[Rfam]
Shown here is a 409-nucleotide sequence from Algoriphagus sanaruensis, a member of the family "Bacterial RNase P class A". Rfam classes the family as a ribozyme.
RNA sequence: CGUGCAAGUUGUCUUGUCGCCUUAGUGAUUUUCGAAUAACUGGGGAGGAAAGUCCGGGCAACAUAGAGCGCCAUACUUCCUAACGGGAAGGCUUUUUACUGGAGACGGUAAAAAGACAGCUAGUGCCACAGAAAACAAACCGUCCUGAUAGCUUUCUAUCGGGAUAAGGGUGAAAAGGUGGGGUAAGAGCCCACCGCUCCGACAGUGAUGAAGGAGGCAUGGCAAACCUUAUGGGUUGAAAGAUCAAAUAGGCCCCGGGCAAAGAGCUGCUCGUUCGAUUCUUACUUUUCGAAGUAGGAUUCCGGGGUGGGUAGAUCGAUAGAGUUCUGGUGUGAAUCAGAAUCAAGAUAAAUGACAAGAAUCCCGAUUUAUCGGGAUACAGAACCCGGCUUAUAGACUUGCACUUUUU
Number, nucleotide and partner (000 for none) at each position: 001c000002g404003u403004g402005c401006a400007a399008g398009u397010u396011g394012u360013c359014u358015u357016g356017u355018c354019g000020c045021c044022u043023u042024a041025g040026u039027g000028a037029u000030u000031u000032u000033c000034g000035a000036a000037u028038a000039a026040c025041u024042g023043g022044g021045g020046a000047g000048g000049a000050a392051a391052g390053u000054c389055c388056g387057g386058g385059c238060a237061a236062c235063a000064u000065a000066g000067a000068g000069c000070g000071c234072c233073a232074u231075a230076c090077u089078u088079c087080c086081u000082a000083a000084c000085g000086g080087g079088a078089a077090g076091g117092c115093u114094u113095u112096u111097u110098a109099c108100u107101g106102g000103a000104g000105a000106c101107g100108g099109u098110a097111a096112a095113a094114a093115g092116a000117c091118a229119g228120c000121u000122a000123g227124u226125g223126c222127c221128a000129c000130a000131g000132a000133a000134a000135a000136c000137a000138a000139a000140c169141c168142g165143u164144c163145c162146u161147g160148a159149u158150a157151g000152c000153u000154u000155u000156c000157u150158a149159u148160c147161g146162g145163g144164a143165u142166a000167a000168g141169g140170g000171u000172g000173a000174a000175a000176a000177g195178g194179u193180g192181g191182g190183g000184u000185a000186a000187g000188a000189g000190c182191c181192c180193a179194c178195c177196g218197c216198u215199c214200c213201g000202a000203c210204a209205g000206u000207g000208a000209u204210g203211a000212a000213g200214g199215a198216g197217g000218c196219a000220u000221g127222g126223c125224a000225a000226a124227c123228c119229u118230u075231a074232u073233g072234g071235g062236u061237u060238g059239a000240a000241a000242g317243a316244u315245c314246a000247a000248a000249u000250a000251g000252g308253c307254c306255c305256c304257g303258g000259g000260c000261a000262a000263a000264g000265a000266g000267c000268u000269g000270c000271u000272c000273g000274u000275u000276c000277g000278a000279u000280u000281c000282u000283u000284a000285c297286u000287u000288u000289u000290c000291g000292a000293a000294g000295u000296a000297g285298g000299a000300u000301u000302c000303c257304g256305g255306g254307g253308u252309g000310g000311g000312u000313a000314g245315a244316u243317c242318g000319a000320u000321a000322g000323a000324g343325u342326u341327c340328u339329g338330g337331u336332g000333u000334g000335a000336a331337u330338c329339a328340g327341a326342a325343u324344c000345a000346a000347g000348a000349u000350a000351a000352a000353u000354g018355a017356c016357a015358a014359g013360a012361a000362u000363c000364c000365c000366g000367a000368u000369u000370u000371a000372u000373c000374g000375g000376g000377a000378u000379a000380c000381a000382g000383a000384a000385c058386c057387c056388g055389g054390c052391u051392u050393a000394u011395a000396g010397a009398c008399u007400u006401g005402c004403a003404c002405u000406u000407u000408u000409u000